[Rfam]
RNA sequence: GGCGUAAAGAGUUCUGUAGGCGGUUGAACAAGUUGGAAGUUAAAUACCUCGGCUCAACCGAGGUAGGGCUUUCAAUACUGUUUAGCUAAGAGGUGACUAGGGGAUAGCGGAACGCAUGGUGUAGCAGUGAAAUGCGUUGAUAUCAUGCGGAACACCAAGGGGGAAGCCAGCUAUCUGGGGUUAUCCUGACGCUGAGAGACGAAAGCGUGGGGAGCGAAACGGAUUAGAUACCCGUGUAGUCCACGCUGUAAACCAUGCCUGCUAGAUGCUCCGUUUUCGGAGUGUCGAAGCUAACGCGUUAAGCAGGCCGCCUGGGAAGUACGAUCGCAAGAUUAAAACUCAAAGGAAU
Number, nucleotide and partner (000 for none) at each position: 001g312002g311003c310004g000005u000006a000007a000008a000009g309010a000011g200012u000013u199014c198015u197016g000017u194018a000019g193020g192021c191022g000023g086024u085025u084026g083027a082028a081029c080030a000031a079032g078033u075034u074035g073036g072037a071038a070039g069040u068041u067042a000043a000044a000045u000046a064047c063048c062049u061050c060051g059052g058053c000054u000055c000056a000057a000058c052059c051060g050061a049062g048063g047064u046065a000066g000067g041068g040069c039070u038071u037072u036073c035074a034075a033076u000077a000078c032079u031080g029081u028082u027083u026084a025085g024086c023087u000088a000089a000090g000091a187092g186093g185094u183095g182096a181097c180098u179099a000100g000101g000102g176103g175104a174105u173106a172107g171108c170109g153110g000111a000112a000113c149114g148115c147116a146117u145118g144119g143120u142121g000122u000123a000124g135125c134126a133127g000128u000129g000130a000131a000132a000133u126134g125135c124136g000137u000138u000139g000140a000141u000142a120143u119144c118145a117146u116147g115148c114149g113150g000151a000152a000153c109154a000155c000156c000157a000158a000159g000160g000161g168162g167163g000164a000165a000166g000167c162168c161169a000170g108171c107172u106173a105174u104175c103176u102177g000178g000179g098180g097181u096182u095183a094184u000185c093186c092187u091188g000189a000190c000191g021192c020193u019194g017195a000196g000197a015198g014199a013200c011201g000202a000203a000204a000205g246206c245207g244208u243209g242210g241211g000212g000213a000214g240215c239216g000217a000218a000219a235220c234221g233222g232223a000224u000225u000226a000227g000228a000229u000230a000231c000232c222233c221234g220235u219236g000237u000238a000239g215240u214241c210242c209243a208244c207245g206246c205247u000248g000249u000250a000251a000252a000253c000254c000255a000256u000257g308258c307259c306260u305261g304262c303263u000264a000265g286266a285267u284268g283269c282270u281271c280272c279273g278274u000275u000276u000277u000278c273279g272280g271281a270282g269283u268284g267285u266286c265287g000288a000289a000290g297291c296292u000293a000294a000295c000296g291297c290298g000299u000300u000301a000302a000303g262304c261305a260306g259307g258308c257309c009310g003311c002312c001313u000314g341315g340316g339317a000318a000319g000320u000321a000322c000323g334324a333325u332326c331327g000328c000329a000330a000331g326332a325333u324334u323335a000336a000337a000338a000339c316340u315341c314342a000343a000344a000345g000346g000347a000348a000349u000

Shown here is a 349-nucleotide part of an RNA from an uncultured candidate division WWE3 bacterium, a member of the family "Bacterial small subunit ribosomal RNA". It is one of the family's seed sequences. The family's consensus secondary structure is taken from published work.